Shown here is a 109-nucleotide sequence from Clupea harengus, a member of the family "Small nucleolar RNA U6-53/MBII-28". A search with the family's covariance model found it, with a score of 79 bits. For this family Rfam cites "RNomics: an experimental approach that identifies 201 candidates for novel, small, non-messenger RNAs in mouse" (Huttenhofer et al., EMBO J, 2001). Pairs were carried over by alignment from the consensus structure. The organism belongs to Clupea, within Eukaryota. By type it is a C/D-box small nucleolar RNA.
RNA sequence: GUCCAGUGAUGAGCCUGCCAUGCUAAUACCGAUACAUCAGGCAGACAGUGUGUCUCUCUGGGUGUACAUGAGUUCAACUCAACUUCUUGCACACAGUGCUCUGAGGACA
Numbered sequence: 001g002u003c004c005a006g007u008g009a010u011g012a013g014c015c016u017g018c019c020a021u022g023c024u025a026a027u028a029c030c031g032a033u034a035c036a037u038c039a040g041g042c043a044g045a046c047a048g049u050g051u052g053u054c055u056c057u058c059u060g061g062g063u064g065u066a067c068a069u070g071a072g073u074u075c076a077a078c079u080c081a082a083c084u085u086c087u088u089g090c091a092c093a094c095a096g097u098g099c100u101c102u103g104a105g106g107a108c109a
Stems, first nucleotide, its partner, number of pairs: 001108004043055004